The record is an 81-nucleotide RNA sequence from Erythrobacter sp. EC-HK427, which matches "Makes More Granules Regulator RNA (mmgR)" in Rfam. About the family: SuhB later renamed mmgR (makes more granules regulator) was a putative non-coding RNA found multiple times in the Agrobacterium tumefaciens genome and related alpha-proteobacteria. Clan: suhB sRNA clan. A search with the family's covariance model found it, with a score of 49 bits.
[Rfam]
RNA sequence: UCUCCCUGCCUUUCAGGCAUCCUCUCCCAAAACUUUUCAGGCCCGGCUGGUUCAUCCAACCGGGCCUUUUUUCUUGUCCCG
Numbered sequence: 001u002c003u004c005c006c007u008g009c010c011u012u013u014c015a016g017g018c019a020u021c022c023u024c025u026c027c028c029a030a031a032a033c034u035u036u037u038c039a040g041g042c043c044c045g046g047c048u049g050g051u052u053c054a055u056c057c058a059a060c061c062g063g064g065c066c067u068u069u070u071u072u073c074u075u076g077u078c079c080c081g
Base pairs, nucleotide, nucleotide: 008018009017010016011015040066041065042064043063044062045061046060048058049057050056